[Rfam]
RNA sequence: UAUCCCAUCACGCUGAAUUGCGGUAAAACAACCGUAAGCGGGGGAACCAGUUUUUCGGGGGUGAAUCUUGCCGGCAGCGGCCGGCGAGUAGGGCGUAUAAAUUUUACGUCCGAACCCGUCAGCUAACUUCGUAAGCGUGGAGGGUAUAUAU
Numbered sequence: 001u002a003u004c005c006c007a008u009c010a011c012g013c014u015g016a017a018u019u020g021c022g023g024u025a026a027a028a029c030a031a032c033c034g035u036a037a038g039c040g041g042g043g044g045a046a047c048c049a050g051u052u053u054u055u056c057g058g059g060g061g062u063g064a065a066u067c068u069u070g071c072c073g074g075c076a077g078c079g080g081c082c083g084g085c086g087a088g089u090a091g092g093g094c095g096u097a098u099a100a101a102u103u104u105u106a107c108g109u110c111c112g113a114a115c116c117c118g119u120c121a122g123c124u125a126a127c128u129u130c131g132u133a134a135g136c137g138u139g140g141a142g143g144g145u146a147u148a149u150a151u
Stems, first nucleotide, its partner, number of pairs: 011137004018037007038132006048058001059117003067088007091111004
RNA: c-di-AMP riboswitch aptamer (ydaO/yuaA leader)
Organism: Neomoorella humiferrea